[Rfam]
RNA sequence: UUAGCUAUUUUAGGUAGUUUGUAUUUAUGAAAUCUGUUUUAAGAUCAUAGAUACAAACGUCAGUAAACAACUGAACCGUAUCUAUGAUGGCUAAACAUUUUGUUGCGUAACAAGUGGCCACGUAGAGAUAAAAUCUAUUGUGGCAAGCUAUUUAUUUCUAGCGCUAUAAGCACCUAUUUAGAUUUUAUCUGGAUAGGUGCUUUUUUCUUUGGAUUAAUGAG
Numbered sequence: 001u002u003a004g005c006u007a008u009u010u011u012a013g014g015u016a017g018u019u020u021g022u023a024u025u026u027a028u029g030a031a032a033u034c035u036g037u038u039u040u041a042a043g044a045u046c047a048u049a050g051a052u053a054c055a056a057a058c059g060u061c062a063g064u065a066a067a068c069a070a071c072u073g074a075a076c077c078g079u080a081u082c083u084a085u086g087a088u089g090g091c092u093a094a095a096c097a098u099u100u101u102g103u104u105g106c107g108u109a110a111c112a113a114g115u116g117g118c119c120a121c122g123u124a125g126a127g128a129u130a131a132a133a134u135c136u137a138u139u140g141u142g143g144c145a146a147g148c149u150a151u152u153u154a155u156u157u158c159u160a161g162c163g164c165u166a167u168a169a170g171c172a173c174c175u176a177u178u179u180a181g182a183u184u185u186u187a188u189c190u191g192g193a194u195a196g197g198u199g200c201u202u203u204u205u206u207c208u209u210u211g212g213a214u215u216a217a218u219g220a221g
Stems, first nucleotide, its partner, number of pairs: 001094007011084006017058014061078001063076002098169002101166002104163003117144005123137003170200010
RNA: Enterococcus sRNA 2410